RNA sequence: AGAGUGUUAUGAUGUUGGAAGCUUUCGGCUUCCGAGUCUAGCUCGGUGCUUGUUCUGCGGUUGCUGAAUCGCAGAAC
Number, nucleotide and partner (000 for none) at each position: 001a000002g044003a043004g042005u041006g000007u000008u000009a000010u000011g038012a037013u036014g000015u000016u000017g033018g032019a031020a030021g029022c028023u000024u000025u000026c000027g000028g022029c021030u020031u019032c018033c017034g000035a000036g013037u012038c011039u000040a000041g005042c004043u003044c002045g000046g000047u000048g000049c000050u000051u000052g077053u076054u075055c074056u073057g072058c071059g070060g069061u000062u000063g000064c000065u000066g000067a000068a000069u060070c059071g058072c057073a056074g055075a054076a053077c052